[Rfam]
RNA sequence: GUCAACUUCUCCCCCCUAAAGGAGGGAGCUUGGAGAGCCAGGGCUCCGACUAAGAGUUGACUAGCUUGAGCCCGUCCUAGAGAGGAUGGUUAAGGGCUACGCCGCGGGAAGACAAACACCUUGGGAUGCUUCCCUAGUCCCAUGCCCUGUAAGUCUCCAGUCUUGGUCUGGAGGGCUUCCGCAAGGAAGCGACACGAUUCCCGUAGGCAUUGGCGAGGGGACGUUUGA
Numbered sequence: 001g002u003c004a005a006c007u008u009c010u011c012c013c014c015c016c017u018a019a020a021g022g023a024g025g026g027a028g029c030u031u032g033g034a035g036a037g038c039c040a041g042g043g044c045u046c047c048g049a050c051u052a053a054g055a056g057u058u059g060a061c062u063a064g065c066u067u068g069a070g071c072c073c074g075u076c077c078u079a080g081a082g083a084g085g086a087u088g089g090u091u092a093a094g095g096g097c098u099a100c101g102c103c104g105c106g107g108g109a110a111g112a113c114a115a116a117c118a119c120c121u122u123g124g125g126a127u128g129c130u131u132c133c134c135u136a137g138u139c140c141c142a143u144g145c146c147c148u149g150u151a152a153g154u155c156u157c158c159a160g161u162c163u164u165g166g167u168c169u170g171g172a173g174g175g176c177u178u179c180c181g182c183a184a185g186g187a188a189g190c191g192a193c194a195c196g197a198u199u200c201c202c203g204u205a206g207g208c209a210u211u212g213g214c215g216a217g218g219g220g221a222c223g224u225u226u227g228a
Base pairs, nucleotide, nucleotide: 001061002060003059004058005057006056007055008054010028012025013024015022016021029042030041031040032039064214065213066212068210069098070097071096072095073094101208102207103206104204105203106202107201108200109199110198116150117149120144122142123141124140125139126138127137128224129223131221132220133219134218135217153190154189156187157186158185
RNA: HNH endonuclease-associated RNA and ORF (HEARO) RNA